[Rfam]
RNA sequence: AGCAGUGAUGAGUAAGAUUCAUUCUGACCUGGUAUUGCUAGAUUUUGUCAGCUUUGACCAGGAAAUGAUCACCUAAUCUUCUCUCUGAGCUG
Numbered sequence: 001a002g003c004a005g006u007g008a009u010g011a012g013u014a015a016g017a018u019u020c021a022u023u024c025u026g027a028c029c030u031g032g033u034a035u036u037g038c039u040a041g042a043u044u045u046u047g048u049c050a051g052c053u054u055u056g057a058c059c060a061g062g063a064a065a066u067g068a069u070c071a072c073c074u075a076a077u078c079u080u081c082u083c084u085c086u087g088a089g090c091u092g
Base pairs, nucleotide, nucleotide: 002090003089037052038051039050

Overview:
A member of the RNA family "Z30 small nucleolar RNA" from Hymenochirus boettgeri, 92 nucleotides long. Lineage of the source: Eukaryota > Eumetazoa > Craniata > Anura > Hymenochirus. The family's RNA type in Rfam is C/D-box small nucleolar RNA. The base pairs follow the family's consensus structure, which was predicted with PFOLD. Its family is annotated with RNA processing and nucleolus in the Gene Ontology. A search with the family's covariance model found it, with a score of 83 bits.